[Rfam]
Clostridiales-1 RNA: a 172-nucleotide RNA sequence from Eubacterium sp. CAG:161.

RNA sequence: UGAUAUACAAGGAACACAAAAUACAGUUUUUUCUGCUUGCAGAAAAAAACUAGUGUUUUGGUGUUCCGCCCCCACAUGAGGAAGUAGCAAUUUUUCUGAAAGAAAAAUUCGCGGAUUCCGAAUGUGGGGAGAAUUGCGAAAGUUGCGAAGCAACGCAGCAAUUCGUAUAUCA
Numbered sequence: 001u002g003a004u005a006u007a008c009a010a011g012g013a014a015c016a017c018a019a020a021a022u023a024c025a026g027u028u029u030u031u032u033c034u035g036c037u038u039g040c041a042g043a044a045a046a047a048a049a050c051u052a053g054u055g056u057u058u059u060g061g062u063g064u065u066c067c068g069c070c071c072c073c074a075c076a077u078g079a080g081g082a083a084g085u086a087g088c089a090a091u092u093u094u095u096c097u098g099a100a101a102g103a104a105a106a107a108u109u110c111g112c113g114g115a116u117u118c119c120g121a122a123u124g125u126g127g128g129g130a131g132a133a134u135u136g137c138g139a140a141a142g143u144u145g146c147g148a149a150g151c152a153a154c155g156c157a158g159c160a161a162u163u164c165g166u167a168u169a170u171c172a
Stems, first nucleotide, its partner, number of pairs: 001172007012066004018059007025051006031044005070129008080119004087112002089109008131164007142154004
It is annotated as a small RNA.